[Rfam]
tRNA: a 74-nucleotide sequence from Faecalibacterium sp. CAG:74.
RNA sequence: GGGGUUAUAGCUCAGUUGGUUAGAGCGUCACGUUGACAUCGUGAAGGUCGAUGGUUCGAGCCCAUUUAACCCCA
Numbered sequence: 001g002g003g004g005u006u007a008u009a010g011c012u013c014a015g016u017u018g019g020u021u022a023g024a025g026c027g028u029c030a031c032g033u034u035g036a037c038a039u040c041g042u043g044a045a046g047g048u049c050g051a052u053g054g055u056u057c058g059a060g061c062c063c064a065u066u067u068a069a070c071c072c073c074a
Base pairs, nucleotide, nucleotide: 001073002072003071004070005069006068007067010026011025012024013023028044029043030042031041032040050066051065052064053063054062